[Rfam]
RNA sequence: GGGAGUAGUUGGAUCUCUGGUGAGGCCCGCGGACUUCAAAUCCGUUGGGAGGCGAGUUCCGUCUCCGGUGGGUUCGAUUCCCACAUACUCCC
Numbered sequence: 001g002g003g004a005g006u007a008g009u010u011g012g013a014u015c016u017c018u019g020g021u022g023a024g025g026c027c028c029g030c031g032g033a034c035u036u037c038a039a040a041u042c043c044g045u046u047g048g049g050a051g052g053c054g055a056g057u058u059c060c061g062u063c064u065c066c067g068g069u070g071g072g073u074u075c076g077a078u079u080c081c082c083a084c085a086u087a088c089u090c091c092c
Stems, first nucleotide, its partner, number of pairs: 001092007012027001014025004029045005048066005069083004

Annotation:
This 92-nucleotide sequence from Natranaerobius thermophilus belongs to the Rfam family "Selenocysteine transfer RNA". The match comes from Rfam's covariance-model search (75 bits). The source organism's lineage runs through Bacteria, Bacillota, Clostridia, Natranaerobiales and Natranaerobius thermophilus.